The record is a 65-nucleotide sequence from Piliocolobus tephrosceles, which matches "U7 small nuclear RNA" in Rfam. Pairs were carried over by alignment from the consensus structure, which was predicted with PFOLD.
RNA sequence: UGGUGUUACAGCUCUUUUAAAAUCUGUCCAGCAGGUGGUUUCCCGGUCUUUACCAGUAAGCCCCC
Dot-bracket structure: ....................................(((((.(.(((....))).).)))))...
Numbered sequence: 001u002g003g004u005g006u007u008a009c010a011g012c013u014c015u016u017u018u019a020a021a022a023u024c025u026g027u028c029c030a031g032c033a034g035g036u037g038g039u040u041u042c043c044c045g046g047u048c049u050u051u052a053c054c055a056g057u058a059a060g061c062c063c064c065c
Stems, first nucleotide, its partner, number of pairs: 037062005043056001045054003